Record summary:
Actinobacteria sRNA Ms_IGR-5: a 183-nucleotide sequence from Mycolicibacterium gilvum. On this family, see Li et al., RNA 2013: "Identification of small RNAs in Mycobacterium smegmatis using heterologous Hfq". Rfam's curators put it in the seed alignment.
[Rfam]
RNA sequence: ACACAGGGAAGGAGGUGGUCCGAGAAAUUGAGUGACUUAUGGACAUGUGAGGUGGCUGCGAGCUAGCAGCGCCGGGAGAGCGCUCGUCGCACCUGUGCGCGCUGGCGAAUUCCCCGCAGUCACCCGGCCCCCGAGCCUCUUGGUCUUGUCCGACCGGGAACGACGGCUCGGGGGCCGCUCCAU
Numbered sequence: 001a002c003a004c005a006g007g008g009a010a011g012g013a014g015g016u017g018g019u020c021c022g023a024g025a026a027a028u029u030g031a032g033u034g035a036c037u038u039a040u041g042g043a044c045a046u047g048u049g050a051g052g053u054g055g056c057u058g059c060g061a062g063c064u065a066g067c068a069g070c071g072c073c074g075g076g077a078g079a080g081c082g083c084u085c086g087u088c089g090c091a092c093c094u095g096u097g098c099g100c101g102c103u104g105g106c107g108a109a110u111u112c113c114c115c116g117c118a119g120u121c122a123c124c125c126g127g128c129c130c131c132c133g134a135g136c137c138u139c140u141u142g143g144u145c146u147u148g149u150c151c152g153a154c155c156g157g158g159a160a161c162g163a164c165g166g167c168u169c170g171g172g173g174g175c176c177g178c179u180c181c182a183u
Stems, first nucleotide, its partner, number of pairs: 015059005062106006069100004074094003125177013139158006